[Rfam]
RNA sequence: AUAAUUCGUCUGGGGUGCCGACAUUCGGCUGAGAUUAUACCCAUCGAACCUGAUGUAGUUUGUACUGCCGAAGGAAGCGCGAGUGGGUCGUAUU
Numbered sequence: 001a002u003a004a005u006u007c008g009u010c011u012g013g014g015g016u017g018c019c020g021a022c023a024u025u026c027g028g029c030u031g032a033g034a035u036u037a038u039a040c041c042c043a044u045c046g047a048a049c050c051u052g053a054u055g056u057a058g059u060u061u062g063u064a065c066u067g068c069c070g071a072a073g074g075a076a077g078c079g080c081g082a083g084u085g086g087g088u089c090g091u092a093u094u
Stems, first nucleotide, its partner, number of pairs: 006082004011043004016037001017029005049074003055068004